Shown here is a 473-nucleotide sequence from Microbulbifer sp. ZGT114, a member of the family "Giant, ornate, lake- and Lactobacillales-derived (GOLLD) RNA". It is annotated as a non-coding RNA gene. The match comes from Rfam's covariance-model search (185 bits). The source organism's lineage runs through Bacteria, Pseudomonadota, Gammaproteobacteria, Cellvibrionales and Microbulbifer.
[Rfam]
RNA sequence: GCGGAGCGUAGCAUUUCGCGGUUCAAAAGACCGUGAAACUACCGGGCACGCGCUUCGUGGCAGGGUAAGCAUUUAGCUCAGAUGGUAGAGCGUUGAUCCUAUAGUCAAUGGCGCUGGUUCGAUUCCGGCAAUGUUUCUAAAAAUGCAAAGACGUGUCCAGGUCUUGUCGAAAAUGGCUUAAUGCCGCGGUCCGCAGGGAUAACGCGGCCAGGGGGAGAGCCGCAAGCUCGACCCUUGUUGAAUCAGAAACGCACGGUGGUGUUAGCACACCUUGAUUGCCCGCAAGGCAGACGGUAGUGGAAGAUUCGAGUAGGCAGGAUUGAUACGGGAUUCGCCACCCGUCAAAAAAGGCAGCCAUGCAACCUACUGUCUUGCGCCCAUUGGCGGAUGCAGUGGAUACGGGAUUAACGGCAGCCCGCAAGCAUGCCGGUAAGGUCCUCAAAGGGUUGUGUCAGUGGCUAUAGUCUCAGGCC
Numbered sequence: 001g002c003g004g005a006g007c008g009u010a011g012c013a014u015u016u017c018g019c020g021g022u023u024c025a026a027a028a029g030a031c032c033g034u035g036a037a038a039c040u041a042c043c044g045g046g047c048a049c050g051c052g053c054u055u056c057g058u059g060g061c062a063g064g065g066u067a068a069g070c071a072u073u074u075a076g077c078u079c080a081g082a083u084g085g086u087a088g089a090g091c092g093u094u095g096a097u098c099c100u101a102u103a104g105u106c107a108a109u110g111g112c113g114c115u116g117g118u119u120c121g122a123u124u125c126c127g128g129c130a131a132u133g134u135u136u137c138u139a140a141a142a143a144u145g146c147a148a149a150g151a152c153g154u155g156u157c158c159a160g161g162u163c164u165u166g167u168c169g170a171a172a173a174u175g176g177c178u179u180a181a182u183g184c185c186g187c188g189g190u191c192c193g194c195a196g197g198g199a200u201a202a203c204g205c206g207g208c209c210a211g212g213g214g215g216a217g218a219g220c221c222g223c224a225a226g227c228u229c230g231a232c233c234c235u236u237g238u239u240g241a242a243u244c245a246g247a248a249a250c251g252c253a254c255g256g257u258g259g260u261g262u263u264a265g266c267a268c269a270c271c272u273u274g275a276u277u278g279c280c281c282g283c284a285a286g287g288c289a290g291a292c293g294g295u296a297g298u299g300g301a302a303g304a305u306u307c308g309a310g311u312a313g314g315c316a317g318g319a320u321u322g323a324u325a326c327g328g329g330a331u332u333c334g335c336c337a338c339c340c341g342u343c344a345a346a347a348a349a350g351g352c353a354g355c356c357a358u359g360c361a362a363c364c365u366a367c368u369g370u371c372u373u374g375c376g377c378c379c380a381u382u383g384g385c386g387g388a389u390g391c392a393g394u395g396g397a398u399a400c401g402g403g404a405u406u407a408a409c410g411g412c413a414g415c416c417c418g419c420a421a422g423c424a425u426g427c428c429g430g431u432a433a434g435g436u437c438c439u440c441a442a443a444g445g446g447u448u449g450u451g452u453c454a455g456u457g458g459c460u461a462u463a464g465u466c467u468c469a470g471g472c473c
Base pairs, nucleotide, nucleotide: 001058002057003056004055005054006053007052008042009041010040011039015037016036017035018034019033020032021031022030023029044158045157046156047155048154049153050152145223146222160321161320162319163318164317165316166315167314168313174357175356176355177354178353183208184207185206186205187204188203189200190199191198209237210236211235212234213233217229218228219227220226240307241306242305243304244303253295254294256292258271259270260269261268276291277290279287280286334352335351336350359450360449361448362447363446364445365395366394367393368392369391370390372388396466397465398464401439402438403437404436405435406434458472459471460470